[Rfam]
RNA sequence: CCAGUCGGCUGGACGGCCGCCGCUUUCGCGGAGGAAAGUCCGGGCUCCAUGGAGACACGGUGCCGGAUAACGUCCGGCGGGGGCAACCCUAGGGAAAGUGCCACAGAAAUCAGACCGCCUCGGCCUAUUGCCGAGGUCAGGGUGAAAAGGUGCGGUAAGAGCGCACCGCGGACCCGGCAACGGGGACGGCACGGCAAACCCCACCGGGAGCAAAACCGAAUAGGGGUGGCGCGGACGGGCCUUCGGGUCGCGUCCAGGCCCGUCUCCGGGUCGCCGCCCGGGUUGGUUGCUUGAGGCGGCGCGCAAGCGUCGUCCCAGAGGAAUGGCCGUCACGUCCGGGGGCAACCCCGGGCCCUACAGAACCCGGCUUACAGGCCGGCUGGCACC
Numbered sequence: 001c002c003a004g005u006c007g008g009c010u011g012g013a014c015g016g017c018c019g020c021c022g023c024u025u026u027c028g029c030g031g032a033g034g035a036a037a038g039u040c041c042g043g044g045c046u047c048c049a050u051g052g053a054g055a056c057a058c059g060g061u062g063c064c065g066g067a068u069a070a071c072g073u074c075c076g077g078c079g080g081g082g083g084c085a086a087c088c089c090u091a092g093g094g095a096a097a098g099u100g101c102c103a104c105a106g107a108a109a110u111c112a113g114a115c116c117g118c119c120u121c122g123g124c125c126u127a128u129u130g131c132c133g134a135g136g137u138c139a140g141g142g143u144g145a146a147a148a149g150g151u152g153c154g155g156u157a158a159g160a161g162c163g164c165a166c167c168g169c170g171g172a173c174c175c176g177g178c179a180a181c182g183g184g185g186a187c188g189g190c191a192c193g194g195c196a197a198a199c200c201c202c203a204c205c206g207g208g209a210g211c212a213a214a215a216c217c218g219a220a221u222a223g224g225g226g227u228g229g230c231g232c233g234g235a236c237g238g239g240c241c242u243u244c245g246g247g248u249c250g251c252g253u254c255c256a257g258g259c260c261c262g263u264c265u266c267c268g269g270g271u272c273g274c275c276g277c278c279c280g281g282g283u284u285g286g287u288u289g290c291u292u293g294a295g296g297c298g299g300c301g302c303g304c305a306a307g308c309g310u311c312g313u314c315c316c317a318g319a320g321g322a323a324u325g326g327c328c329g330u331c332a333c334g335u336c337c338g339g340g341g342g343c344a345a346c347c348c349c350g351g352g353c354c355c356u357a358c359a360g361a362a363c364c365c366g367g368c369u370u371a372c373a374g375g376c377c378g379g380c381u382g383g384c385a386c387c
Base pairs, nucleotide, nucleotide: 001383002382003381004380005379006378007377008376009375010374011372012331013330014329015328016327017326018325020031021030022029023028036370037369038368040367041366042365043364044363045210046209047208048207054265058206059205060204061203062202063077064076065075066074067073078092079090080089081088082087093201094200098199099198100195101194102193115141116140117137118136119135120134121133122132123131124130149167150166151165152164153163154162168190169188170187173184174183175182176181214288215287216286217285224279225278226277227276228275229274257272258271259270260269261268295314296313297312298311299310300309301308302307
Notes
Bacterial RNase P class A: a 387-nucleotide sequence from Blastochloris viridis. NCBI's taxonomy places the organism under Bacteria, Pseudomonadota, Hyphomicrobiales, Blastochloridaceae, Blastochloris. Pairs were carried over by alignment from the consensus structure, which is taken from published work. By type it is a ribozyme. The match comes from Rfam's covariance-model search (294 bits).